[Rfam]
Rfam assigns this 100-nucleotide RNA from Clostridium sp. MSTE9 to the family "TPP riboswitch aptamer (THI element)".
It scores 63 bits against the family's covariance model.

RNA sequence: AAUAGAUUGCGGGGGGACUCUACGGAGUUGAGAAGGUUAAAACCUGACCCUUUGAACCUGUCAGUUAACACUGGCGCAGGGAAGCAAAUGCAGAACGAAU
Numbered sequence: 001a002a003u004a005g006a007u008u009g010c011g012g013g014g015g016g017a018c019u020c021u022a023c024g025g026a027g028u029u030g031a032g033a034a035g036g037u038u039a040a041a042a043c044c045u046g047a048c049c050c051u052u053u054g055a056a057c058c059u060g061u062c063a064g065u066u067a068a069c070a071c072u073g074g075c076g077c078a079g080g081g082a083a084g085c086a087a088a089u090g091c092a093g094a095a096c097g098a099a100u
Base pairs, nucleotide, nucleotide: 007087008086009085010084011051012050013049014048016045017028018027019026020025035044036043037042057080058079059078060077061074062073063072064071